[Rfam]
RNA sequence: AACCAUUACCACAGAGACCACACAUGUACCGACACAUGGUCCCGGGUGCCGUGAAAACGGUCGGACCCAUGGGGUGCGUGGAGGCUUAAC
Numbered sequence: 001a002a003c004c005a006u007u008a009c010c011a012c013a014g015a016g017a018c019c020a021c022a023c024a025u026g027u028a029c030c031g032a033c034a035c036a037u038g039g040u041c042c043c044g045g046g047u048g049c050c051g052u053g054a055a056a057a058c059g060g061u062c063g064g065a066c067c068c069a070u071g072g073g074g075u076g077c078g079u080g081g082a083g084g085c086u087u088a089a090c
Stems, first nucleotide, its partner, number of pairs: 023080008035071005040065003048061005